Streptococcus sRNA Spd-sr37: a 67-nucleotide RNA sequence from Streptococcus minor. The family's RNA type in Rfam is small RNA. For this family Rfam cites "Identification and characterization of noncoding small RNAs in Streptococcus pneumoniae serotype 2 strain D39" (Tsui et al., J Bacteriol, 2010). A search with the family's covariance model found it, with a score of 85 bits.
[Rfam]
RNA sequence: CAAGAAUCAUGAUGGUCAAAGCUCAUGGGAAUUGUAGGUCUUUUUGGCGUACAGUUUUCGAGAGUUU
Numbered sequence: 001c002a003a004g005a006a007u008c009a010u011g012a013u014g015g016u017c018a019a020a021g022c023u024c025a026u027g028g029g030a031a032u033u034g035u036a037g038g039u040c041u042u043u044u045u046g047g048c049g050u051a052c053a054g055u056u057u058u059c060g061a062g063a064g065u066u067u
Stems, first nucleotide, its partner, number of pairs: 019067006033053004038048001